Small nucleolar RNA Z159/U59: an 84-nucleotide sequence from Populus deltoides. The source organism's lineage runs through Eukaryota, Tracheophyta, eudicotyledons, Pentapetalae and Populus. It scores 40 bits against the family's covariance model.
RNA sequence: AUCUCUAAUGAUGUGCAUGUUAAAACGUUCGUUCUCCUGAGCAAACUAAUGCUGAAAAAUUGCGGAGAACUGAGCUGGAGAGUU
Numbered sequence: 001a002u003c004u005c006u007a008a009u010g011a012u013g014u015g016c017a018u019g020u021u022a023a024a025a026c027g028u029u030c031g032u033u034c035u036c037c038u039g040a041g042c043a044a045a046c047u048a049a050u051g052c053u054g055a056a057a058a059a060u061u062g063c064g065g066a067g068a069a070c071u072g073a074g075c076u077g078g079a080g081a082g083u084u
Base pairs, nucleotide, nucleotide: 003082004081005080006079